[Rfam]
RNA sequence: GGUGGGGUGGCCGAGUGGUUAGGCAGCGGCCUGCAAAGCCGUCAACGCGGGUUCGAAUCCCGUCUCCACCU
Numbered sequence: 001g002g003u004g005g006g007g008u009g010g011c012c013g014a015g016u017g018g019u020u021a022g023g024c025a026g027c028g029g030c031c032u033g034c035a036a037a038g039c040c041g042u043c044a045a046c047g048c049g050g051g052u053u054c055g056a057a058u059c060c061c062g063u064c065u066c067c068a069c070c071u
Stems, first nucleotide, its partner, number of pairs: 001070007010024003026042005047063005

The record is a 71-nucleotide sequence from Kocuria flava, which matches "tRNA" in Rfam. Pairs were carried over by alignment from the consensus structure, which is taken from published work. Gene Ontology term of the family: triplet codon-amino acid adaptor activity. Rfam classes the family as a transfer RNA.